[Rfam]
RNA sequence: UAGUAGCACUUAUAGGAACUGUCUGGAGUGUCCACGAAAGUGGAAAUUAGUGCUUUAAAUAAAUCCUUGCACAAAGGUA
Numbered sequence: 001u002a003g004u005a006g007c008a009c010u011u012a013u014a015g016g017a018a019c020u021g022u023c024u025g026g027a028g029u030g031u032c033c034a035c036g037a038a039a040g041u042g043g044a045a046a047u048u049a050g051u052g053c054u055u056u057a058a059a060u061a062a063a064u065c066c067u068u069g070c071a072c073a074a075a076g077g078u079a
Base pairs, nucleotide, nucleotide: 031044032043033042034041035040050072051071052070053069
RNA: RAGATH-12 RNA